[Rfam]
RNA sequence: AGUCAAUGAUGCAAAACAUUAAGGCUUGUUUCUCAAAAUACAUUCGCAGUGGCUGCCUGAGAGCUUUCGCCUCGCCGGGCUUGAGAGCAUAUGCUGCUUAACUCUUCCUUCCUUGGAUGUCUGAGACU
Numbered sequence: 001a002g003u004c005a006a007u008g009a010u011g012c013a014a015a016a017c018a019u020u021a022a023g024g025c026u027u028g029u030u031u032c033u034c035a036a037a038a039u040a041c042a043u044u045c046g047c048a049g050u051g052g053c054u055g056c057c058u059g060a061g062a063g064c065u066u067u068c069g070c071c072u073c074g075c076c077g078g079g080c081u082u083g084a085g086a087g088c089a090u091a092u093g094c095u096g097c098u099u100a101a102c103u104c105u106u107c108c109u110u111c112c113u114u115g116g117a118u119g120u121c122u123g124a125g126a127c128u
Stems, first nucleotide, its partner, number of pairs: 001128004063088006
RNA: Small nucleolar RNA SNORD14
Organism: Ananas comosus